[Rfam]
RNA: Methylosinus-1 RNA
RNA sequence: GGGGCGCGGUUCGCAUGGACGGGCGCCGACCCUCGCUCGUUUCCAGCGACGCCACGCCGCCGGCACGGGCUUCUCCUUCGCGCGGAGGCAUGGGGACACAUGCGUGUGGCCACAUGCGAAAGCCCGGCCGAAUAUCCGAGGUUCGCGCGGGGAUAGACUACCCGAAAGGGGAAAACAACCCUGGGCCCGCAGGCGGCGGACAGAAAAGGCAGCCGUGGUCCGGGA
Numbered sequence: 001g002g003g004g005c006g007c008g009g010u011u012c013g014c015a016u017g018g019a020c021g022g023g024c025g026c027c028g029a030c031c032c033u034c035g036c037u038c039g040u041u042u043c044c045a046g047c048g049a050c051g052c053c054a055c056g057c058c059g060c061c062g063g064c065a066c067g068g069g070c071u072u073c074u075c076c077u078u079c080g081c082g083c084g085g086a087g088g089c090a091u092g093g094g095g096a097c098a099c100a101u102g103c104g105u106g107u108g109g110c111c112a113c114a115u116g117c118g119a120a121a122g123c124c125c126g127g128c129c130g131a132a133u134a135u136c137c138g139a140g141g142u143u144c145g146c147g148c149g150g151g152g153a154u155a156g157a158c159u160a161c162c163c164g165a166a167a168g169g170g171g172a173a174a175a176c177a178a179c180c181c182u183g184g185g186c187c188c189g190c191a192g193g194c195g196g197c198g199g200a201c202a203g204a205a206a207a208g209g210c211a212g213c214c215g216u217g218g219u220c221c222g223g224g225a
Stems, first nucleotide, its partner, number of pairs: 005217006012048003017043002061130004066126006073087004091116002094113001140187004